The record is a 357-nucleotide RNA from Pseudoroseicyclus aestuarii, which matches "Alphaproteobacteria transfer-messenger RNA" in Rfam.
[Rfam]
RNA sequence: GGCCUUGCAAGGCCCGAGCGCGGGGCCUAUAUUCCAUGCUGUCUCCGCAAGGGGACUAUGGACAUAAACGCGCUCGUAAUACGCGGAUCGGACCCGGGGGCGGUACCCGGCGGCUCCACCAAACACCCUUUGUUGGGGGGACAUGGGGCCGAAACAGGAUCGACGAACGUCUAAAGGGGUAUGCUUUGUCCCGGUGAGGUACCACCGUUAUCGGUCCGAAUUGUACAGUUGCCAACAACAACCGUGCUCCGGCUAUGGCUCUGGCUGCUUAAGCAGUCCGAGUUGCCGAAACUUAAGCCCUUGCGCCUAGCAGCGUAAGGCGGGGUUCGCAGGCACCUGGCAACAGAAGCCUGCACU
Numbered sequence: 001g002g003c004c005u006u007g008c009a010a011g012g013c014c015c016g017a018g019c020g021c022g023g024g025g026c027c028u029a030u031a032u033u034c035c036a037u038g039c040u041g042u043c044u045c046c047g048c049a050a051g052g053g054g055a056c057u058a059u060g061g062a063c064a065u066a067a068a069c070g071c072g073c074u075c076g077u078a079a080u081a082c083g084c085g086g087a088u089c090g091g092a093c094c095c096g097g098g099g100g101c102g103g104u105a106c107c108c109g110g111c112g113g114c115u116c117c118a119c120c121a122a123a124c125a126c127c128c129u130u131u132g133u134u135g136g137g138g139g140g141a142c143a144u145g146g147g148g149c150c151g152a153a154a155c156a157g158g159a160u161c162g163a164c165g166a167a168c169g170u171c172u173a174a175a176g177g178g179g180u181a182u183g184c185u186u187u188g189u190c191c192c193g194g195u196g197a198g199g200u201a202c203c204a205c206c207g208u209u210a211u212c213g214g215u216c217c218g219a220a221u222u223g224u225a226c227a228g229u230u231g232c233c234a235a236c237a238a239c240a241a242c243c244g245u246g247c248u249c250c251g252g253c254u255a256u257g258g259c260u261c262u263g264g265c266u267g268c269u270u271a272a273g274c275a276g277u278c279c280g281a282g283u284u285g286c287c288g289a290a291a292c293u294u295a296a297g298c299c300c301u302u303g304c305g306c307c308u309a310g311c312a313g314c315g316u317a318a319g320g321c322g323g324g325g326u327u328c329g330c331a332g333g334c335a336c337c338u339g340g341c342a343a344c345a346g347a348a349g350c351c352u353g354c355a356c357u
Stems, first nucleotide, its partner, number of pairs: 041056005060191005070184002072180004084169002088166003094110005111151007192207004198217002201215003323338004329354006
Background:
Taxonomically the source falls in Pseudoroseicyclus (Bacteria, Pseudomonadati, Pseudomonadota, Paracoccaceae). From the family's description: Bacterial tmRNA, also known as 10Sa RNA or SsrA, is named for its dual tRNA and mRNA-like properties. Its role is to liberate the mRNA from a stalled ribosome. To accomplish this part of the tmRNA is used as a reading frame that ends in a translation stop signal. The broken mRNA is replaced in the ribosome by the tmRNA and translation of the tmRNA leads to addition of a proteolysis tag to the incomplete protein enabling recognition by a protease. It scores 294 bits against the family's covariance model.